Rfam assigns this 204-nucleotide RNA sequence from Oryza sativa to the family "MIR812 microRNA precursor family".
The organism belongs to Oryza, within Eukaryota.

RNA sequence: AAUAAGUGCAGCCAUGAGUUUCCGCGCUCAAUUUUGAUCGUCCGUCUUAUUUGAAAUUUUUUUAUAAUUAGCAUUUUUGUUGUUAUGAGAUGAUAAAACAUGAAUAGUACUUUACUUGUGACUUAUGUUUUUAAAUUUUUUCAAAAAAUUUUUAAUAAGACGAACGGUUAAAGUUGGACGCGGAAAACCAUGGCUACACUUAUU
Numbered sequence: 001a002a003u004a005a006g007u008g009c010a011g012c013c014a015u016g017a018g019u020u021u022c023c024g025c026g027c028u029c030a031a032u033u034u035u036g037a038u039c040g041u042c043c044g045u046c047u048u049a050u051u052u053g054a055a056a057u058u059u060u061u062u063u064a065u066a067a068u069u070a071g072c073a074u075u076u077u078u079g080u081u082g083u084u085a086u087g088a089g090a091u092g093a094u095a096a097a098a099c100a101u102g103a104a105u106a107g108u109a110c111u112u113u114a115c116u117u118g119u120g121a122c123u124u125a126u127g128u129u130u131u132u133a134a135a136u137u138u139u140u141u142c143a144a145a146a147a148a149u150u151u152u153u154a155a156u157a158a159g160a161c162g163a164a165c166g167g168u169u170a171a172a173g174u175u176g177g178a179c180g181c182g183g184a185a186a187a188c189c190a191u192g193g194c195u196a197c198a199c200u201u202a203u204u
Stems, first nucleotide, its partner, number of pairs: 028177014043162007